[Rfam]
RNA sequence: GCCGAUGUAGCUCAGCUGGUAGAGCGGUGCAUUCGUAAUGCGUAGGUCUGGGGUUCAAAUCCCCACAUUGGCA
Numbered sequence: 001g002c003c004g005a006u007g008u009a010g011c012u013c014a015g016c017u018g019g020u021a022g023a024g025c026g027g028u029g030c031a032u033u034c035g036u037a038a039u040g041c042g043u044a045g046g047u048c049u050g051g052g053g054u055u056c057a058a059a060u061c062c063c064c065a066c067a068u069u070g071g072c073a
Stems, first nucleotide, its partner, number of pairs: 001072007010025004027043005049065005